[Rfam]
RNA: tRNA
Organism: Neisseria animalis
RNA sequence: GGCGAAUUAGCUCAGUCGGUUAGAGCAGAGGAAUCAUAAUCCUUGUGUCCGGGGUUCGAGUCCCUGAUUCGCCA
Numbered sequence: 001g002g003c004g005a006a007u008u009a010g011c012u013c014a015g016u017c018g019g020u021u022a023g024a025g026c027a028g029a030g031g032a033a034u035c036a037u038a039a040u041c042c043u044u045g046u047g048u049c050c051g052g053g054g055u056u057c058g059a060g061u062c063c064c065u066g067a068u069u070c071g072c073c074a
Stems, first nucleotide, its partner, number of pairs: 001073007010026004028044005050066005